[Rfam]
RNA: Glycine riboswitch aptamer
RNA sequence: GGACACACCCCUGGAGAGACUCGUAAAGAGCAUCGAAGAAGAAACUUAGUAUUUUGAAAAUAUUAUGACGUAGUAUUUUCAAAGUAUUAAGGAAUCUUUCAGAUAAAAGGACAGGGAUAAAUAG
Numbered sequence: 001g002g003a004c005a006c007a008c009c010c011c012u013g014g015a016g017a018g019a020c021u022c023g024u025a026a027a028g029a030g031c032a033u034c035g036a037a038g039a040a041g042a043a044a045c046u047u048a049g050u051a052u053u054u055u056g057a058a059a060a061u062a063u064u065a066u067g068a069c070g071u072a073g074u075a076u077u078u079u080c081a082a083a084g085u086a087u088u089a090a091g092g093a094a095u096c097u098u099u100c101a102g103a104u105a106a107a108a109g110g111a112c113a114g115g116g117a118u119a120a121a122u123a124g
Base pairs, nucleotide, nucleotide: 007118009116010115011114012113013112020030021029022028032104033103034102035100036099039098040097041096045091046090047089048088049087050086051085052084053083054082055081056080057079058078059077060076061075062074063073064072065071